RNA sequence: UCCUAGCCCCGAUAGAAGAGGAAAUCCUUUUAUUUUUUUCCUUUAAAAAAAUAAAAGAUUGGAACGAAUAGCGGGAUUAGCU
Dot-bracket structure: ........(((.((...(....((((..(((((((((((.....))))))))))).))))....)...)).)))........
Numbered sequence: 001u002c003c004u005a006g007c008c009c010c011g012a013u014a015g016a017a018g019a020g021g022a023a024a025u026c027c028u029u030u031u032a033u034u035u036u037u038u039u040c041c042u043u044u045a046a047a048a049a050a051a052u053a054a055a056a057g058a059u060u061g062g063a064a065c066g067a068a069u070a071g072c073g074g075g076a077u078u079a080g081c082u
Stems, first nucleotide, its partner, number of pairs: 009074003013070002018065001023060004029055011